The family of this 113-nucleotide RNA sequence from Marinobacter antarcticus is "t44 RNA". The organism belongs to Marinobacter, within Bacteria. Rfam classes the family as a small RNA.

[Rfam]
RNA sequence: AAACGAAUCCGGCAAAUUCGCACACGUGUCAGCACGUUGUCCCAGGGUGCCUGCUCCUGUUCUAGAGUUAUAAAGGAGCCUGGUUGGGGCAAUCGGACGCGUGGAGGACUAAC
Dot-bracket structure: ......................((((((((.....(((((((((....(((.(..........................).))))))))))))..))))))))..........
Numbered sequence: 001a002a003a004c005g006a007a008u009c010c011g012g013c014a015a016a017u018u019c020g021c022a023c024a025c026g027u028g029u030c031a032g033c034a035c036g037u038u039g040u041c042c043c044a045g046g047g048u049g050c051c052u053g054c055u056c057c058u059g060u061u062c063u064a065g066a067g068u069u070a071u072a073a074a075g076g077a078g079c080c081u082g083g084u085u086g087g088g089g090c091a092a093u094c095g096g097a098c099g100c101g102u103g104g105a106g107g108a109c110u111a112a113c
Stems, first nucleotide, its partner, number of pairs: 023103008036093009049084003053080001
This family consists of a number of bacterial RNA genes of between 135 and 170 bases in length.